[Rfam]
RNA sequence: UGGUCAUUACCAAGGCUUUUAGAAUGAAGUUUCUCAUUUGCUGUGGACAUGACCAUAAAAAAUUUUCCCACUAGGUUUUUCUGCCUGCUAUUUUGUUAGCAAUCAACCUGUUGGGAACAUUA
Numbered sequence: 001u002g003g004u005c006a007u008u009a010c011c012a013a014g015g016c017u018u019u020u021a022g023a024a025u026g027a028a029g030u031u032u033c034u035c036a037u038u039u040g041c042u043g044u045g046g047a048c049a050u051g052a053c054c055a056u057a058a059a060a061a062a063u064u065u066u067c068c069c070a071c072u073a074g075g076u077u078u079u080u081c082u083g084c085c086u087g088c089u090a091u092u093u094u095g096u097u098a099g100c101a102a103u104c105a106a107c108c109u110g111u112u113g114g115g116a117a118c119a120u121u122a
Stems, first nucleotide, its partner, number of pairs: 003053005010046003026041001028039002067115004074108004086101003
A member of the RNA family "Small nucleolar RNA SNORA32" from Chinchilla lanigera, 122 nucleotides long.
It scores 129 bits against the family's covariance model.
The base pairs follow the family's consensus structure, which was predicted with RNAfold.
ACA32 is a member of the H/ACA class of snoRNA that guide the sites of modification of uridines to pseudouridines.
Rfam classes the family as an H/ACA-box small nucleolar RNA.
Rfam links the family to the GO terms RNA processing and nucleolus.
NCBI's taxonomy places the organism under Eukaryota, Eumetazoa, Dipnotetrapodomorpha, Theria, Chinchilla.